RNA sequence: CGAGAUAACUGUAGCUAAGGAACUCUGCAAAAUAACCCCGUAAGUUAGCGAGAAGGGGUGCUCAUAGCAAUAUGAGCCGCAGUGAAGAGGAAGGGGCAACUGUUUAGCAAAAACACAGCUCUCUGCUAAGUCGUAAGACGACGUAUAGGGGGUGACGCCUGCCCAGUGCUGGAAGGUUAAGGGGAUUUGUUAGCCGCAAGGCGAAGCUUUGAACCGAAGCCCCAGUGAACGGCGGCCGUAACUAUAACGGUCCUAAGGUAGCGAAAUUCCUUGUCAGGUAAGUUCUGACCCGCACGAAAGGCGUAAUGAUCCCUUCGCUGUCUCGGCUGCAGACUCG
Numbered sequence: 001c002g003a004g005a006u007a008a009c010u011g012u013a014g015c016u017a018a019g020g021a022a023c024u025c026u027g028c029a030a031a032a033u034a035a036c037c038c039c040g041u042a043a044g045u046u047a048g049c050g051a052g053a054a055g056g057g058g059u060g061c062u063c064a065u066a067g068c069a070a071u072a073u074g075a076g077c078c079g080c081a082g083u084g085a086a087g088a089g090g091a092a093g094g095g096g097c098a099a100c101u102g103u104u105u106a107g108c109a110a111a112a113a114c115a116c117a118g119c120u121c122u123c124u125g126c127u128a129a130g131u132c133g134u135a136a137g138a139c140g141a142c143g144u145a146u147a148g149g150g151g152g153u154g155a156c157g158c159c160u161g162c163c164c165a166g167u168g169c170u171g172g173a174a175g176g177u178u179a180a181g182g183g184g185a186u187u188u189g190u191u192a193g194c195c196g197c198a199a200g201g202c203g204a205a206g207c208u209u210u211g212a213a214c215c216g217a218a219g220c221c222c223c224a225g226u227g228a229a230c231g232g233c234g235g236c237c238g239u240a241a242c243u244a245u246a247a248c249g250g251u252c253c254u255a256a257g258g259u260a261g262c263g264a265a266a267u268u269c270c271u272u273g274u275c276a277g278g279u280a281a282g283u284u285c286u287g288a289c290c291c292g293c294a295c296g297a298a299a300g301g302c303g304u305a306a307u308g309a310u311c312c313c314u315u316c317g318c319u320g321u322c323u324c325g326g327c328u329g330c331a332g333a334c335u336c337g
Stems, first nucleotide, its partner, number of pairs: 001337004009332008018323003035059005044049001060077007078082001090316007097308002101115003118153008126143001130139003156303004161233003166230002168226005175221003181215002189207002193202002234252006253257001263290001273289006
RNA: Bacterial large subunit ribosomal RNA, nucleotides 1691 to 2027